[Rfam]
The family of this 130-nucleotide RNA from Cannabis sativa is "MIR828 microRNA precursor family". The base pairs follow the family's consensus structure, which was predicted with RNAalifold. A search with the family's covariance model found it, with a score of 87 bits. The organism belongs to Cannabis, within Eukaryota. For this family Rfam cites "A diverse and evolutionarily fluid set of microRNAs in Arabidopsis thaliana" (Rajagopalan et al., Genes Dev, 2006).
RNA sequence: GUAAUUUCUCUUGCUCAAAUGAGUAUUCCAGCAACAGUAGUUGCAUAUAUAAUAUAUAUAUAUAUAUAAUAUAUGUGAUCUAAUGACUUCUUCUGGUAUCUGAGAUGCUCAUUUGGGCAAGCAAUGUUAC
Numbered sequence: 001g002u003a004a005u006u007u008c009u010c011u012u013g014c015u016c017a018a019a020u021g022a023g024u025a026u027u028c029c030a031g032c033a034a035c036a037g038u039a040g041u042u043g044c045a046u047a048u049a050u051a052a053u054a055u056a057u058a059u060a061u062a063u064a065u066a067u068a069a070u071a072u073a074u075g076u077g078a079u080c081u082a083a084u085g086a087c088u089u090c091u092u093c094u095g096g097u098a099u100c101u102g103a104g105a106u107g108c109u110c111a112u113u114u115g116g117g118c119a120a121g122c123a124a125u126g127u128u129a130c
Base pairs, nucleotide, nucleotide: 004127005126007124010121011120012119013118014117015116016115017114018113019112020111021110022109023108024107025106026105027104029102030101